[Rfam]
Overview: Shown here is a 72-nucleotide RNA sequence from Leptolyngbyaceae cyanobacterium LF-bin-113, a member of the family "tRNA". Rfam links the family to the GO term triplet codon-amino acid adaptor activity. Pairs were carried over by alignment from the consensus structure, which is taken from published work. From the family's description: Transfer RNA (tRNA) molecules are approximately 80 nucleotides in length.
RNA sequence: GGGGGUUUAGCUCAGUGGUAGAGCGCUUGCUCGACAAGCAAGAUGUCACUGGUUCAAGUCCAGUAACCCCCA
Dot-bracket structure: (((((((..((((.......)))).(((((.......))))).....(((((.......)))))))))))).